Record summary:
A member of the RNA family "Small nucleolar RNA SNORA58" from Ictidomys tridecemlineatus, 137 nucleotides long. The family's RNA type in Rfam is H/ACA-box small nucleolar RNA. From the family's description: ACA52 is a member of the H/ACA class of snoRNA that guide the sites of modification of uridines to pseudouridines. NCBI's taxonomy places the organism under Eukaryota, Bilateria, Gnathostomata, Dipnotetrapodomorpha, Ictidomys. Its Rfam clan is "SNORA44 clan". For this family Rfam cites "RNomics: an experimental approach that identifies 201 candidates for novel, small, non-messenger RNAs in mouse" (Huttenhofer et al., EMBO J, 2001). The family has 20 seed sequences and 471 matches in Rfam 15.1. The base pairs follow the family's consensus structure, which was predicted with PFOLD.

RNA sequence: AGGCAUAUCCGUAGACCUUGCUUGGCUCUGCUUAUGGCCAGGCAGGGGGGACAGUGUAUGCAAGAAUAAUCCGGAGUUUAUGCAAACUCAAACCAGCUUCUUCGGUAGCUGGAUAAAUUGCAGUACUCCCUACAUUU
Dot-bracket structure: ..((((((.......(((((((((..............)))))))))........))))))...........((((.(..(((.........(((((..........))))).......)))..)))))........